[Rfam]
RNA sequence: GCUGGAUGACUAAGGAGGCUGAGUCUGACACAGCAAGACUCUGCUGACUACAAUUGUCCUAGAAAAAGGGUUGGAGAAAGUGGGAGAUCUGUGAAGGAUCUUCUGACUACAGUGGGAGUACCUGUCCUGA
Numbered sequence: 001g002c003u004g005g006a007u008g009a010c011u012a013a014g015g016a017g018g019c020u021g022a023g024u025c026u027g028a029c030a031c032a033g034c035a036a037g038a039c040u041c042u043g044c045u046g047a048c049u050a051c052a053a054u055u056g057u058c059c060u061a062g063a064a065a066a067a068g069g070g071u072u073g074g075a076g077a078a079a080g081u082g083g084g085a086g087a088u089c090u091g092u093g094a095a096g097g098a099u100c101u102u103c104u105g106a107c108u109a110c111a112g113u114g115g116g117a118g119u120a121c122c123u124g125u126c127c128u129g130a
Stems, first nucleotide, its partner, number of pairs: 002062002004059006017045003021041006081129005087123001091121003

Notes:
The family of this 130-nucleotide RNA from Equus caballus is "Small Cajal body specific RNA 4". For this family Rfam cites "Cajal body-specific small nuclear RNAs: a novel class of 2'-O-methylation and pseudouridylation guide RNAs" (Darzacq et al., EMBO J, 2002). It is annotated as a small Cajal body RNA. Rfam 15.1 lists 634 matches to the family in 510 species. Lineage of the source: Eukaryota > Bilateria > Mammalia > Eutheria > Equus. Its family is annotated with RNA processing, nucleolus and Cajal body in the Gene Ontology.